RNA sequence: CGCAUCCUUCGGGGCAGGGUGAAAUUCCCGACCGGCGGUAAUGAAACAGAUGUUUCUCAGCCCGCGAGCCGUUAAGGCAUGAUCCGGUGCGAUUCCGGAGCCGACAGUAUAGUCUGGAUGGGAGAAGGAUUGC
Numbered sequence: 001c002g003c004a005u006c007c008u009u010c011g012g013g014g015c016a017g018g019g020u021g022a023a024a025u026u027c028c029c030g031a032c033c034g035g036c037g038g039u040a041a042u043g044a045a046a047c048a049g050a051u052g053u054u055u056c057u058c059a060g061c062c063c064g065c066g067a068g069c070c071g072u073u074a075a076g077g078c079a080u081g082a083u084c085c086g087g088u089g090c091g092a093u094u095c096c097g098g099a100g101c102c103g104a105c106a107g108u109a110u111a112g113u114c115u116g117g118a119u120g121g122g123a124g125a126a127g128g129a130u131u132g133c
Base pairs, nucleotide, nucleotide: 004130005129006128007127008126009125010124017029018028019027031113032112033103034102035065036064037063038062060101061100070077083099084098085097086096087095105116106115107114
RNA: FMN riboswitch aptamer (RFN element)
Organism: Anoxybacillus flavithermus